[Rfam]
RNA sequence: GACAUGCAUGACGGGUGCUCAGUCUGCUUCAAGCGGACUGGGCUGAGAGUACACCGUUCGGACCUGAUCAGGGCAAUGCCUGCGCAGGGACAUGCUUCCUCCAAAUC
Numbered sequence: 001g002a003c004a005u006g007c008a009u010g011a012c013g014g015g016u017g018c019u020c021a022g023u024c025u026g027c028u029u030c031a032a033g034c035g036g037a038c039u040g041g042g043c044u045g046a047g048a049g050u051a052c053a054c055c056g057u058u059c060g061g062a063c064c065u066g067a068u069c070a071g072g073g074c075a076a077u078g079c080c081u082g083c084g085c086a087g088g089g090a091c092a093u094g095c096u097u098c099c100u101c102c103a104a105a106u107c
Stems, first nucleotide, its partner, number of pairs: 006095005011057004016051001017043011063088004069082004